A member of the RNA family "mraW RNA" from Corynebacterium gerontici, 101 nucleotides long. Rfam 15.1 lists 851 matches to the family in 821 species.
RNA sequence: CUGCGGAGUGUACGUAAGACCUCUGCUCGAGGCUGGCUCUGGUGUACUUCCCCGAUACCAGAGCUGCCUCGGGUGGGGAUCUAUGUGCGCCCCGCGCAAUA
Dot-bracket structure: .........(((((((.((.(((((((((((((..((((((((((.........)))))))))).))))))))))))).))))))))).............

It is annotated as a cis-regulatory element. It scores 60 bits against the family's covariance model.